tRNA: a 74-nucleotide RNA from Acetilactobacillus jinshanensis. Rfam describes the family as follows. Transfer RNA (tRNA) molecules are approximately 80 nucleotides in length. A search with the family's covariance model found it, with a score of 55 bits.
[Rfam]
RNA sequence: GCUGUGUUGGUGAAGUUGGUCAACACACACGGUUGUGGCCCGUGCACGCGUGGGUUCGAGUCCCACACACGGCC
Numbered sequence: 001g002c003u004g005u006g007u008u009g010g011u012g013a014a015g016u017u018g019g020u021c022a023a024c025a026c027a028c029a030c031g032g033u034u035g036u037g038g039c040c041c042g043u044g045c046a047c048g049c050g051u052g053g054g055u056u057c058g059a060g061u062c063c064c065a066c067a068c069a070c071g072g073c074c
Stems, first nucleotide, its partner, number of pairs: 001073007010026003028044005050066005
Dot-bracket structure: (((((((..(((...........))).(((((.......))))).....(((((.......)))))))))))).